This 84-nucleotide RNA sequence from Macaca mulatta belongs to the Rfam family "Small nucleolar RNA MBII-202". Pairs were carried over by alignment from the consensus structure, which was predicted with PFOLD. Gene Ontology terms of the family: nucleolus and RNA processing. Rfam 15.1 lists 745 matches to the family in 452 species. It is one of the family's seed sequences. On this family, see Huttenhofer et al., EMBO J 2001: "RNomics: an experimental approach that identifies 201 candidates for novel, small, non-messenger RNAs in mouse". Lineage of the source: Eukaryota > Theria > Cercopithecoidea > Cercopithecinae > Macaca.
RNA sequence: UGAUGACAUUCUCCGGAAUCGCUGGACGGCCUUGAUGAAAGCACGUUUGAACCCUUUUCCAUCUGAUCGCUGGGCCUCUCCAUC
Numbered sequence: 001u002g003a004u005g006a007c008a009u010u011c012u013c014c015g016g017a018a019u020c021g022c023u024g025g026a027c028g029g030c031c032u033u034g035a036u037g038a039a040a041g042c043a044c045g046u047u048u049g050a051a052c053c054c055u056u057u058u059c060c061a062u063c064u065g066a067u068c069g070c071u072g073g074g075c076c077u078c079u080c081c082a083u084c
Base pairs, nucleotide, nucleotide: 002084003083004082005081